[Rfam]
RNA sequence: UCUGUGGUUUAGGUAGUUUCAUGUUGUUGGGAUUGGCUUUUAGCUCGGCAACAAGAAACUGCCUUAAUUACGUC
Numbered sequence: 001u002c003u004g005u006g007g008u009u010u011a012g013g014u015a016g017u018u019u020c021a022u023g024u025u026g027u028u029g030g031g032a033u034u035g036g037c038u039u040u041u042a043g044c045u046c047g048g049c050a051a052c053a054a055g056a057a058a059c060u061g062c063c064u065u066a067a068u069u070a071c072g073u074c
Stems, first nucleotide, its partner, number of pairs: 003072007011064009022053010
Shown here is a 74-nucleotide RNA from Gallus gallus, a member of the family "mir-196 microRNA precursor family". Rfam's curators put it in the seed alignment. Lineage of the source: Eukaryota > Sauropsida > Coelurosauria > Galliformes > Gallus.